RNA sequence: CGAGCAGGUCGAACGGCUGCGCAAGGGAAUAACCCUUGUGAGGAAAGUCCGAGCUCCACAGGGCAGGGUGCUGGGUAACACCCAGUGGAGGCGACUCCAAGGAAAGUGCAACAGAAAAGAACCGCCGUCCAUUUUUGCAUGGAUGGUAAGGGUGAAAAGGUGAGGUAAGAGCUCACCAGCAGUCAGGCGACUGACUGGCUGUGCAAACCCCACCCGGAGCAAGACCAAAUAGGGGAACAAUGCAGUGGCCCGCUGCGUUCCCGGGUUGGUCGCAAGAGGUCUGAUGGCAACGUCAGACCCAAAGAGAAAUAGCCGUUCUCGACAGAACUCGGCUUACAGACCUGGUCGCACA
Numbered sequence: 001c002g003a004g005c006a007g008g009u010c011g012a013a014c015g016g017c018u019g020c021g022c023a024a025g026g027g028a029a030u031a032a033c034c035c036u037u038g039u040g041a042g043g044a045a046a047g048u049c050c051g052a053g054c055u056c057c058a059c060a061g062g063g064c065a066g067g068g069u070g071c072u073g074g075g076u077a078a079c080a081c082c083c084a085g086u087g088g089a090g091g092c093g094a095c096u097c098c099a100a101g102g103a104a105a106g107u108g109c110a111a112c113a114g115a116a117a118a119g120a121a122c123c124g125c126c127g128u129c130c131a132u133u134u135u136u137g138c139a140u141g142g143a144u145g146g147u148a149a150g151g152g153u154g155a156a157a158a159g160g161u162g163a164g165g166u167a168a169g170a171g172c173u174c175a176c177c178a179g180c181a182g183u184c185a186g187g188c189g190a191c192u193g194a195c196u197g198g199c200u201g202u203g204c205a206a207a208c209c210c211c212a213c214c215c216g217g218a219g220c221a222a223g224a225c226c227a228a229a230u231a232g233g234g235g236a237a238c239a240a241u242g243c244a245g246u247g248g249c250c251c252g253c254u255g256c257g258u259u260c261c262c263g264g265g266u267u268g269g270u271c272g273c274a275a276g277a278g279g280u281c282u283g284a285u286g287g288c289a290a291c292g293u294c295a296g297a298c299c300c301a302a303a304g305a306g307a308a309a310u311a312g313c314c315g316u317u318c319u320c321g322a323c324a325g326a327a328c329u330c331g332g333c334u335u336a337c338a339g340a341c342c343u344g345g346u347c348g349c350a351c352a
Base pairs, nucleotide, nucleotide: 001348002347003346005344006343007342008341009340010339011337012317013316014315015314016313017312018311020040021039022038023037024036025035026034027033045335046334047333049332050331051330052329053328054219055218056217057216061251062250063249064248066215067214068213069212070211071085072084073083074082075081086100087098088097089096090095101210102209106208107207108204109203110202122151123150124147125146126145127144128143129142130141131140132139159177160176161175162174163173164172179199180197181196182195183194184193185192186191223271224270225269226268233262234261235260236259237258238257242256243255244254245253246252279298280297281296282295283294284293285292286291